[Rfam]
RNA sequence: AACUUCUGGAAAGAGGCAUAUGCCUUGGCAUGUGCCCGCCGACGGGAUAACGAUCUCAGGCAAAUCGACAGAAGGGGCAGG
Numbered sequence: 001a002a003c004u005u006c007u008g009g010a011a012a013g014a015g016g017c018a019u020a021u022g023c024c025u026u027g028g029c030a031u032g033u034g035c036c037c038g039c040c041g042a043c044g045g046g047a048u049a050a051c052g053a054u055c056u057c058a059g060g061c062a063a064a065u066c067g068a069c070a071g072a073a074g075g076g077g078c079a080g081g
Stems, first nucleotide, its partner, number of pairs: 003074006015036007038061003041057002045055002
RNA: Glycine riboswitch aptamer
Organism: Ameyamaea chiangmaiensis